[Rfam]
RNA sequence: CAUAACCAAAAAUGAUUCUUGGAUCAAGGGUGGGAUUGGUCACAAAGCGCACUUCACCGCCUCCUGGAGCCCAAGUGUCAUAUAAACCACCCCAAAACAUUGCUUUACAUACAAGUAAUAAAGCGCCUACACCAAGAGCAAUCAAGUGAUAUCCAAGAAUACUGGUGACUUUGUCUUUAUCACUCCA
Numbered sequence: 001c002a003u004a005a006c007c008a009a010a011a012a013u014g015a016u017u018c019u020u021g022g023a024u025c026a027a028g029g030g031u032g033g034g035a036u037u038g039g040u041c042a043c044a045a046a047g048c049g050c051a052c053u054u055c056a057c058c059g060c061c062u063c064c065u066g067g068a069g070c071c072c073a074a075g076u077g078u079c080a081u082a083u084a085a086a087c088c089a090c091c092c093c094a095a096a097a098c099a100u101u102g103c104u105u106u107a108c109a110u111a112c113a114a115g116u117a118a119u120a121a122a123g124c125g126c127c128u129a130c131a132c133c134a135a136g137a138g139c140a141a142u143c144a145a146g147u148g149a150u151a152u153c154c155a156a157g158a159a160u161a162c163u164g165g166u167g168a169c170u171u172u173g174u175c176u177u178u179a180u181c182a183c184u185c186c187a
Base pairs, nucleotide, nucleotide: 145184146183147182148181149180150179155176157174

A member of the RNA family "Antisense RNA which regulates isiA expression" from Mastigocoleus testarum, 187 nucleotides long.
Lineage of the source: Bacteria > Cyanobacteriota > Hapalosiphonaceae > Mastigocoleus > Mastigocoleus testarum.
The family has 308 seed sequences and 3,397 matches in Rfam 15.1.
It scores 161 bits against the family's covariance model.